[Rfam]
RNA sequence: GCCGGUGUGGCGGAAUGGCAGACGCGCGCGACUCAAAAUCGUGAGGGAAACCGUGGGGGUUCGAGUCCCUUCACCGGCA
Numbered sequence: 001g002c003c004g005g006u007g008u009g010g011c012g013g014a015a016u017g018g019c020a021g022a023c024g025c026g027c028g029c030g031a032c033u034c035a036a037a038a039u040c041g042u043g044a045g046g047g048a049a050a051c052c053g054u055g056g057g058g059g060u061u062c063g064a065g066u067c068c069c070u071u072c073a074c075c076g077g078c079a
Stems, first nucleotide, its partner, number of pairs: 001078007010025003027043005055071005
RNA: tRNA